[Rfam]
RNA sequence: CUCUCAUCCAAACCCAAGAACUGUGACUUUUAGUAGCAGCAGCUUAAACAGCAGUGCACACAGCAAGUGGACUUUGUUGCCUUUGGGGGACUGUGCCAUGCCCCUUAGAGUGAAUGUGAAGGGUCUGCAUAA
Numbered sequence: 001c002u003c004u005c006a007u008c009c010a011a012a013c014c015c016a017a018g019a020a021c022u023g024u025g026a027c028u029u030u031u032a033g034u035a036g037c038a039g040c041a042g043c044u045u046a047a048a049c050a051g052c053a054g055u056g057c058a059c060a061c062a063g064c065a066a067g068u069g070g071a072c073u074u075u076g077u078u079g080c081c082u083u084u085g086g087g088g089g090a091c092u093g094u095g096c097c098a099u100g101c102c103c104c105u106u107a108g109a110g111u112g113a114a115u116g117u118g119a120a121g122g123g124u125c126u127g128c129a130u131a132a
Stems, first nucleotide, its partner, number of pairs: 005056003019044001021042004027036002069125002072122004081110009091100001
Record summary: Small nucleolar RNA SNORA68: a 132-nucleotide RNA sequence from Chrysochloris asiatica. NCBI's taxonomy places the organism under Eukaryota, Eumetazoa, Vertebrata, Sarcopterygii, Chrysochloris. Rfam 15.1 lists 1,079 matches to the family in 643 species. The literature on the family includes a 1997 paper in Genes Dev by Ganot et al., "The family of box ACA small nucleolar RNAs is defined by an evolutionarily conserved secondary structure and ubiquitous sequence elements essential for RNA accumulation". It is annotated as an H/ACA-box small nucleolar RNA. Rfam describes the family as follows. U68 is a member of the H/ACA class of small nucleolar RNAs (snoRNAs) which act as guides in the the modification of uridines to pseudouridines.